[Rfam]
RNA sequence: AGUUAGCUUUGAUGUGAAAGGUUGCGACACGCCCGGCUACAUUGUCAUGGGGUGCGGCGGUAAUUUUCACGGAGCUAGUCUUAUUUUCAAAAUAGACGAAGGA
Numbered sequence: 001a002g003u004u005a006g007c008u009u010u011g012a013u014g015u016g017a018a019a020g021g022u023u024g025c026g027a028c029a030c031g032c033c034c035g036g037c038u039a040c041a042u043u044g045u046c047a048u049g050g051g052g053u054g055c056g057g058c059g060g061u062a063a064u065u066u067u068c069a070c071g072g073a074g075c076u077a078g079u080c081u082u083a084u085u086u087u088c089a090a091a092a093u094a095g096a097c098g099a100a101g102g103a
Base pairs, nucleotide, nucleotide: 014070015069016068018067019066020065021064025059026058028056079102080101081100082099085098087096088095

The record is a 103-nucleotide RNA sequence from Lactiplantibacillus kimchii, which matches "S10-Clostridia ribosomal protein leader" in Rfam. Pairs were carried over by alignment from the consensus structure, which is taken from published work. Taxonomically the source falls in Lactiplantibacillus (Bacteria, Bacillati, Bacilli, Lactobacillaceae).